Nuclear RNase P: a 330-nucleotide RNA sequence from Brugia malayi.
For this family Rfam cites "Ribonuclease P: unity and diversity in a tRNA processing ribozyme" (Frank and Pace, Annu Rev Biochem, 1998).
Pairs were carried over by alignment from the consensus structure, which is taken from published work.
The family's RNA type in Rfam is ribozyme.
NCBI's taxonomy places the organism under Eukaryota, Eumetazoa, Chromadorea, Spirurina, Brugia.
The match comes from Rfam's covariance-model search (113 bits).
RNA sequence: GUGGUGAUAAGGUGACAAAAGGAGUAACGCACGGGUAUUUAAUUACCCAAUGAUAUUUCUCCUGGGAAGGUCUGAGAUUAGGUCCCAACCGGAUUUGGUUGGUUGUAUCCUCUAGCAGGGGAACGAUGCAAGCCGUCGUGGUGCCGUACCAGAAACUUCCCCUUGGUACCAAUCGCCCUAGAAGUACAAGACGGUUUUACCUAGUGCUAGGGAGAACCUGAUACGAUCGUGGUGAUGGUACUGAGUUUGAACCACGGUGCCGGUACUAGCUGCGCUGAGUGCGAUUGUCACCCACAUAUAUGAACUCAAUUCAGACUACUCUAUCGCCAC
Number, nucleotide and partner (000 for none) at each position: 001g330002u329003g328004g327005u000006g000007a324008u323009a322010a000011g000012g292013u000014g000015a000016c000017a000018a286019a000020a063021g062022g061023a060024g059025u000026a000027a000028c000029g000030c000031a000032c000033g048034g047035g046036u045037a044038u000039u000040u000041a000042a000043u000044u037045a036046c035047c034048c033049a000050a000051u000052g000053a000054u000055a000056u000057u000058u000059c024060u023061c022062c021063u020064g000065g000066g000067a000068a000069g000070g000071u000072c314073u313074g312075a311076g310077a000078u000079u000080a000081g000082g266083u265084c263085c262086c000087a000088a000089c000090c000091g000092g000093a000094u000095u000096u000097g000098g000099u000100u000101g000102g000103u000104u000105g000106u000107a000108u122109c121110c120111u119112c118113u000114a000115g000116c000117a000118g112119g111120g110121g109122a108123a139124c138125g137126a136127u135128g134129c000130a000131a000132g000133c000134c128135g127136u126137c125138g124139u123140g000141g260142u259143g258144c257145c256146g255147u254148a000149c000150c000151a000152g000153a000154a000155a000156c000157u000158u000159c245160c000161c243162c000163u000164u000165g000166g000167u000168a000169c000170c000171a000172a000173u000174c000175g000176c000177c000178c000179u000180a000181g000182a000183a000184g000185u000186a000187c000188a000189a000190g000191a000192c000193g000194g000195u000196u000197u000198u000199a000200c000201c000202u000203a000204g000205u000206g000207c000208u000209a000210g000211g000212g000213a000214g000215a000216a000217c000218c000219u000220g000221a000222u000223a000224c000225g000226a000227u000228c000229g000230u000231g000232g000233u000234g000235a000236u000237g000238g000239u000240a000241c000242u000243g161244a000245g159246u000247u000248u000249g000250a000251a000252c000253c000254a147255c146256g145257g144258u143259g142260c141261c000262g085263g084264u000265a083266c082267u000268a000269g000270c000271u000272g000273c000274g000275c000276u000277g000278a000279g000280u000281g000282c000283g000284a000285u000286u018287g000288u000289c000290a000291c000292c012293c302294a301295c000296a000297u000298a000299u000300a000301u294302g293303a000304a000305c000306u000307c000308a000309a000310u076311u075312c074313a073314g072315a000316c000317u000318a000319c000320u000321c000322u009323a008324u007325c000326g000327c004328c003329a002330c001